A member of the RNA family "Clostridiales-1 RNA" from Eubacterium ventriosum, 167 nucleotides long. Taxonomically the source falls in Eubacterium (Bacteria, Clostridia, Eubacteriales, Eubacteriaceae). It is annotated as a small RNA. The family's consensus secondary structure is taken from published work.
[Rfam]
RNA sequence: AGCUUACAGCGUAGAAAAGUCUUACUGCACCUGUGCUUGCACAAAGGUGCAGAAAAGACUUUGAGACGCGCCCCGAACAUGAGCAAAAAGGCGAAGCGAAGCAGAGCAAUAUGCGAAUGUACGGGAAGGAUUGUGUGAGUGCGAAGCACGUAGCAAUCCGGUAAGCU
Number, nucleotide and partner (000 for none) at each position: 001a167002g166003c165004u164005u163006a162007c161008a000009g000010c068011g067012u066013a000014g000015a000016a062017a061018a060019g059020u058021c057022u056023u055024a000025c052026u051027g050028c049029a048030c047031c046032u043033g042034u041035g040036c000037u000038u000039g000040c035041a034042c033043a032044a000045a000046g031047g030048u029049g028050c027051a026052g025053a000054a000055a023056a022057g021058a020059c019060u018061u017062u016063g000064a000065g000066a012067c011068g010069c000070g000071c000072c125073c124074c123075g122076a000077a120078c119079a118080u117081g000082a000083g114084c113085a112086a000087a000088a000089a000090g000091g107092c106093g000094a000095a000096g102097c101098g000099a000100a000101g097102c096103a000104g000105a000106g092107c091108a000109a000110u000111a000112u085113g084114c083115g000116a000117a080118u079119g078120u077121a000122c075123g074124g073125g072126a000127a000128g159129g158130a157131u156132u155133g154134u153135g000136u000137g000138a000139g149140u148141g147142c146143g000144a000145a000146g142147c141148a140149c139150g000151u000152a000153g134154c133155a132156a131157u130158c129159c128160g000161g007162u006163a005164a004165g003166c002167u001
A search with the family's covariance model found it, with a score of 111 bits.
The family has 194 seed sequences and 1,172 matches in Rfam 15.1.